[Rfam]
The record is a 123-nucleotide RNA sequence from Neorhizobium alkalisoli, which matches "Alphaproteobacterial ar14" in Rfam.

RNA sequence: GUGGUUCGGGCGCCCUACUCCUCCUCCCAAGGGUCGCCUGAUGGAACAGCGGCACUCCUCCUCCCAGUCGCUGUUCGGAUUUCGAAAAGCCUGCCGCACCUCCUCCCGCGGCAGGCUUUUUCG
Dot-bracket structure: ......((((((.(((..............))).))))))...((((((((((.............))))))))))..........(((((((((((..........))))))))))).....
Source information: Lineage of the source: Bacteria > Pseudomonadota > Alphaproteobacteria > Hyphomicrobiales > Neorhizobium. The literature on the family includes a 2017 paper in Environ Microbiol by Robledo et al., "A conserved alpha-proteobacterial small RNA contributes to osmoadaptation and symbiotic efficiency of rhizobia on legume roots". A search with the family's covariance model found it, with a score of 109 bits.